[Rfam]
The record is a 99-nucleotide RNA from Brochothrix campestris, which matches "Purine riboswitch aptamer" in Rfam.
RNA sequence: AUAAAAUAAGUGUAAAACAAACGUAUAAUUUUGAGAAAAUGGCUCAAUUGUUUCUACCCGGCACCAAUCUGCUGGACUACGUUAAUAUUAUCAACACAA
Numbered sequence: 001a002u003a004a005a006a007u008a009a010g011u012g013u014a015a016a017a018c019a020a021a022c023g024u025a026u027a028a029u030u031u032u033g034a035g036a037a038a039a040u041g042g043c044u045c046a047a048u049u050g051u052u053u054c055u056a057c058c059c060g061g062c063a064c065c066a067a068u069c070u071g072c073u074g075g076a077c078u079a080c081g082u083u084a085a086u087a088u089u090a091u092c093a094a095c096a097c098a099a
Stems, first nucleotide, its partner, number of pairs: 020083006031047005058075006
The base pairs follow the family's consensus structure, which is taken from published work.